[Rfam]
Description
A member of the RNA family "Nitrogen stress-induced RNA 1" from Trichormus variabilis, 63 nucleotides long. The pairing is the family consensus, mapped onto this sequence. By type it is a small RNA. Taxonomically the source falls in Trichormus variabilis (Bacteria, Cyanobacteriota, Cyanophyceae, Nostocaceae).
RNA sequence: UGGUAGAUGCACCUUGAUCUUCAACUCCCCUGGUAGGCUAACACCCGCCUAGGGGUUUUUUUA
Numbered sequence: 001u002g003g004u005a006g007a008u009g010c011a012c013c014u015u016g017a018u019c020u021u022c023a024a025c026u027c028c029c030c031u032g033g034u035a036g037g038c039u040a041a042c043a044c045c046c047g048c049c050u051a052g053g054g055g056u057u058u059u060u061u062u063a
Stems, first nucleotide, its partner, number of pairs: 002013003027055007034047001036045002